[Rfam]
RNA sequence: GUCGGCCGAUCACACUUAAGCUCUGAUACCUGUGUCCUGACGGAUAUGGUGUCAUGGCCGCAACCCUCGAGUUGCCAGGGUGCAGAAAGAAAUGACUGCAUCUCCCGUUUUGGAAAGGUGUCAACGGUGUCACAAU
Numbered sequence: 001g002u003c004g005g006c007c008g009a010u011c012a013c014a015c016u017u018a019a020g021c022u023c024u025g026a027u028a029c030c031u032g033u034g035u036c037c038u039g040a041c042g043g044a045u046a047u048g049g050u051g052u053c054a055u056g057g058c059c060g061c062a063a064c065c066c067u068c069g070a071g072u073u074g075c076c077a078g079g080g081u082g083c084a085g086a087a088a089g090a091a092a093u094g095a096c097u098g099c100a101u102c103u104c105c106c107g108u109u110u111u112g113g114a115a116a117g118g119u120g121u122c123a124a125c126g127g128u129g130u131c132a133c134a135a136u
Stems, first nucleotide, its partner, number of pairs: 006127001012121004017117001020058003024054007034045004060075005078103008088093001104113002
Rfam assigns this 136-nucleotide RNA sequence from Erwinia tasmaniensis to the family "Molybdenum/Tungsten riboswitch aptamer (Moco RNA motif)".
The organism belongs to Erwinia, within Bacteria.